The record is a 60-nucleotide sequence from Bifidobacterium tissieri, which matches "msiK RNA" in Rfam. The match comes from Rfam's covariance-model search (63 bits). By type it is a cis-regulatory element. Rfam 15.1 lists 1,374 matches to the family in 1,364 species.
RNA sequence: GAACACCCCCCUUUUACAACGGAUCGUGAGGCACGUACCUGCCUCUGAAAGGAAAUGAUU
Numbered sequence: 001g002a003a004c005a006c007c008c009c010c011c012u013u014u015u016a017c018a019a020c021g022g023a024u025c026g027u028g029a030g031g032c033a034c035g036u037a038c039c040u041g042c043c044u045c046u047g048a049a050a051g052g053a054a055a056u057g058a059u060u
Stems, first nucleotide, its partner, number of pairs: 010052007028045006